RNA sequence: CGGUCGGCAGUUCACCCAGGCGUCGCCGCCCCGCAAGGGGUGCUAAACCUGCCA
Numbered sequence: 001c002g003g004u005c006g007g008c009a010g011u012u013c014a015c016c017c018a019g020g021c022g023u024c025g026c027c028g029c030c031c032c033g034c035a036a037g038g039g040g041u042g043c044u045a046a047a048c049c050u051g052c053c054a
Stems, first nucleotide, its partner, number of pairs: 002016003029040004
RNA: COG3860 RNA